[Rfam]
The family of this 56-nucleotide sequence from Streptomyces bingchenggensis is "msiK RNA". The organism belongs to Streptomyces bingchenggensis, within Bacteria.

RNA sequence: GACCCCUGCCUUUACUCGGAUCGUCCGGCACGUUCCUGCCGGUGAAGGGACCAGAU
Dot-bracket structure: ........((((((..........((((((......))))))))))))........